[Rfam]
RNA sequence: ACAUGCGGGGAUCGCCCCCCGUCAGCGCGUCGCGCCCACGGGGGCGACAGCC
Numbered sequence: 001a002c003a004u005g006c007g008g009g010g011a012u013c014g015c016c017c018c019c020c021g022u023c024a025g026c027g028c029g030u031c032g033c034g035c036c037c038a039c040g041g042g043g044g045c046g047a048c049a050g051c052c
Stems, first nucleotide, its partner, number of pairs: 016044007025035004
Dot-bracket structure: ...............(((((((..((((...))))..)))))))........
Rfam assigns this 52-nucleotide RNA from Paracoccus sigandri to the family "ffh sRNA". A search with the family's covariance model found it, with a score of 56 bits. The base pairs follow the family's consensus structure, which is taken from published work. By type it is a small RNA.